[Rfam]
RNA sequence: GAUUAUACAUCAUUUGUACCGUAGACAGCAGGGGCCCAGUGCUUAAUUAUCCUGCCGAGGACAAGACGCUCUUUAUUUUAAAGAUGACGACUUUUCUGCCCUCGUGUCUAUGUAAAUGGACCGAGGGCUUUUCGUAUGGUAUA
Numbered sequence: 001g002a003u004u005a006u007a008c009a010u011c012a013u014u015u016g017u018a019c020c021g022u023a024g025a026c027a028g029c030a031g032g033g034g035c036c037c038a039g040u041g042c043u044u045a046a047u048u049a050u051c052c053u054g055c056c057g058a059g060g061a062c063a064a065g066a067c068g069c070u071c072u073u074u075a076u077u078u079u080a081a082a083g084a085u086g087a088c089g090a091c092u093u094u095u096c097u098g099c100c101c102u103c104g105u106g107u108c109u110a111u112g113u114a115a116a117u118g119g120a121c122c123g124a125g126g127g128c129u130u131u132u133c134g135u136a137u138g139g140u141a142u143a
Base pairs, nucleotide, nucleotide: 028055029054030053031052032051033050034042035041098128099127100126101125102124103123104122106121107120108119109118110117111116

Shown here is a 143-nucleotide sequence from Sporosarcina sp. Te-1, a member of the family "Ribosomal protein L10 leader". A search with the family's covariance model found it, with a score of 68 bits. Lineage of the source: Bacteria > Bacillati > Caryophanales > Caryophanaceae > Sporosarcina. From the family's description: This family is a putative r-protein leader autoregulatory structure found in B. subtilis and other low-GC Gram-positive bacteria. It is located in the 5' untranslated regions of mRNAs encoding ribosomal proteins L10 and L12 (rplJ-rplL). A Rho-independent transcription terminator structure that is probably involved in regulation is included at the 3' end. On this family, see Zengel and Lindahl, Prog Nucleic Acid Res Mol Biol 1994: "Diverse mechanisms for regulating ribosomal protein synthesis in Escherichia coli". It is annotated as a cis-regulatory leader. Rfam links the family to the GO term regulation of gene expression.